[Rfam]
Source information:
PAGEV RNA: a 218-nucleotide sequence from Vibrio mediterranei. Lineage of the source: Bacteria > Pseudomonadota > Vibrionales > Vibrionaceae > Vibrio.

RNA sequence: CUCUAUUUGGUUCAAGAUGUUUUGGAUAGAGCGAUGCGCAUCACCCACCGAUCAAGGGGAGUUCGAUAGGUGGGCGGUAAAGGUAACAAUCAUAACUUGUCAUAGACACGAUAAAGAUGCCUGUUUUAGCUGCUAGACGGGAUAAGCAUCAAAGGAAUAAGUGAUUGUUAUUGUGGGACCGGAAUGGGGGGCUUUUAGCCUUAACUCACAGCGCAGGG
Numbered sequence: 001c002u003c004u005a006u007u008u009g010g011u012u013c014a015a016g017a018u019g020u021u022u023u024g025g026a027u028a029g030a031g032c033g034a035u036g037c038g039c040a041u042c043a044c045c046c047a048c049c050g051a052u053c054a055a056g057g058g059g060a061g062u063u064c065g066a067u068a069g070g071u072g073g074g075c076g077g078u079a080a081a082g083g084u085a086a087c088a089a090u091c092a093u094a095a096c097u098u099g100u101c102a103u104a105g106a107c108a109c110g111a112u113a114a115a116g117a118u119g120c121c122u123g124u125u126u127u128a129g130c131u132g133c134u135a136g137a138c139g140g141g142a143u144a145a146g147c148a149u150c151a152a153a154g155g156a157a158u159a160a161g162u163g164a165u166u167g168u169u170a171u172u173g174u175g176g177g178a179c180c181g182g183a184a185u186g187g188g189g190g191g192c193u194u195u196u197a198g199c200c201u202u203a204a205c206u207c208a209c210a211g212c213g214c215a216g217g218g
Base pairs, nucleotide, nucleotide: 001031002030003029004028005027006026007025044074045073046072047071048070049069061185062184063183064182084170085169086168087167088166089165090164091163092162093161117149118148119147121141171211172210173209174208175207176206188202189201190200191199192198
Background:
Rfam classes the family as a small RNA.